Rfam assigns this 177-nucleotide sequence from Camphora micrantha to the family "U2 spliceosomal RNA". Taxonomically the source falls in Camphora (Eukaryota, Streptophytina, Magnoliidae, Laurales). Rfam's curators write: U2 is a small nuclear RNA (snRNA) component of the spliceosome (involved in pre-mRNA splicing). Complementary binding between U2 snRNA (in an area lying towards the 5' end but 3' to hairpin I) and the branchpoint sequence (BPS) of the intron results the bulging out of an unpaired adenosine, on the BPS, which initiates a nucleophilic attack at the intronic 5' splice site, thus starting the first of two transesterification reactions that mediate splicing. It scores 96 bits against the family's covariance model.
RNA sequence: CCAGAUUUAUCAAGUGUAAUAUCUCUUCUUAUAGAUUAAUAUCUGAUACGUGGCCCAUUGGGCCACAUGAUAUUAGAUUAAAUUUUCGUGGGGGAGGCCCCACCACAGUAGCUUGCUACUGGGGUCCUCAAAUGUCACCUAUGUGUUGCACGACAGCAUCGGCAUGGCGCACCCUUA
Numbered sequence: 001c002c003a004g005a006u007u008u009a010u011c012a013a014g015u016g017u018a019a020u021a022u023c024u025c026u027u028c029u030u031a032u033a034g035a036u037u038a039a040u041a042u043c044u045g046a047u048a049c050g051u052g053g054c055c056c057a058u059u060g061g062g063c064c065a066c067a068u069g070a071u072a073u074u075a076g077a078u079u080a081a082a083u084u085u086u087c088g089u090g091g092g093g094g095a096g097g098c099c100c101c102a103c104c105a106c107a108g109u110a111g112c113u114u115g116c117u118a119c120u121g122g123g124g125u126c127c128u129c130a131a132a133u134g135u136c137a138c139c140u141a142u143g144u145g146u147u148g149c150a151c152g153a154c155a156g157c158a159u160c161g162g163c164a165u166g167g168c169g170c171a172c173c174c175u176u177a
Base pairs, nucleotide, nucleotide: 030048031047032046033044034043050066051065052064053063054062055061056060094129095128096127097126099124100123101122108119109118110117111116133169134168135167136166137165139161141159142158143157144156